[Rfam]
RNA: Small nucleolar RNA snoR109
RNA sequence: CGGCUGUUGCUAUAAUAGAGAAGUUAACUGGCCGAUUAUCGUGCUUGAUUUGAAAAUUUCAAGCUUCCAUCGAUUAAUCUGCUUACCGAGCUUCGUACAUUU
Numbered sequence: 001c002g003g004c005u006g007u008u009g010c011u012a013u014a015a016u017a018g019a020g021a022a023g024u025u026a027a028c029u030g031g032c033c034g035a036u037u038a039u040c041g042u043g044c045u046u047g048a049u050u051u052g053a054a055a056a057u058u059u060c061a062a063g064c065u066u067c068c069a070u071c072g073a074u075u076a077a078u079c080u081g082c083u084u085a086c087c088g089a090g091c092u093u094c095g096u097a098c099a100u101u102u
Base pairs, nucleotide, nucleotide: 018096020094021093022092023091024090025089030083031082032081034079035078036077037076038074039073040072041071